mir-9242 microRNA precursor family: a 71-nucleotide RNA sequence from Myotis lucifugus.
It scores 62 bits against the family's covariance model.
Lineage of the source: Eukaryota > Metazoa > Tetrapoda > Eutheria > Myotis.

RNA sequence: GGCCUCCCUCUGCAGGGUGAUCGAUCGUGGAACCCCCCCCCCCCCCAUCGAUUGCCCCACAGAGGGUGGCC
Numbered sequence: 001g002g003c004c005u006c007c008c009u010c011u012g013c014a015g016g017g018u019g020a021u022c023g024a025u026c027g028u029g030g031a032a033c034c035c036c037c038c039c040c041c042c043c044c045c046c047a048u049c050g051a052u053u054g055c056c057c058c059a060c061a062g063a064g065g066g067u068g069g070c071c
Base pairs, nucleotide, nucleotide: 001071002070003069004068006066007065008064009063010062011061012060015057016056017055018054019053020052021051022050023049024048025047027045029043030042